Histone 3' UTR stem-loop: a 46-nucleotide RNA sequence from Anguilla anguilla. Taxonomically the source falls in Anguilla (Eukaryota, Deuterostomia, Teleostomi, Euteleostomi). By type it is a cis-regulatory element. On this family, see Williams and Marzluff, Nucleic Acids Res 1995: "The sequence of the stem and flanking sequences at the 3' end of histone mRNA are critical determinants for the binding of the stem-loop binding protein". The family's consensus secondary structure is taken from published work.
[Rfam]
RNA sequence: CCAAAGGCUCUUUUUAGAGCCGCCCACUUUUCAUUAAAAGCGCAAU
Numbered sequence: 001c002c003a004a005a006g007g008c009u010c011u012u013u014u015u016a017g018a019g020c021c022g023c024c025c026a027c028u029u030u031u032c033a034u035u036a037a038a039a040g041c042g043c044a045a046u
Stems, first nucleotide, its partner, number of pairs: 006021006